RNA: Small nucleolar RNA SNORD67
Organism: Anolis carolinensis
RNA sequence: UGCGAGAAUGAUGAGUUGCACGUUUGGUGGGGCUGAGUGUCAGAUGACACAAGCACCACUCAGAAACCACCCUGAUGACAAUACCAAGUGCACAGGGGCCAUCUGACUCGCU
Numbered sequence: 001u002g003c004g005a006g007a008a009u010g011a012u013g014a015g016u017u018g019c020a021c022g023u024u025u026g027g028u029g030g031g032g033c034u035g036a037g038u039g040u041c042a043g044a045u046g047a048c049a050c051a052a053g054c055a056c057c058a059c060u061c062a063g064a065a066a067c068c069a070c071c072c073u074g075a076u077g078a079c080a081a082u083a084c085c086a087a088g089u090g091c092a093c094a095g096g097g098g099c100c101a102u103c104u105g106a107c108u109c110g111c112u
Stems, first nucleotide, its partner, number of pairs: 004111001006109002023064004027059004032054003037050005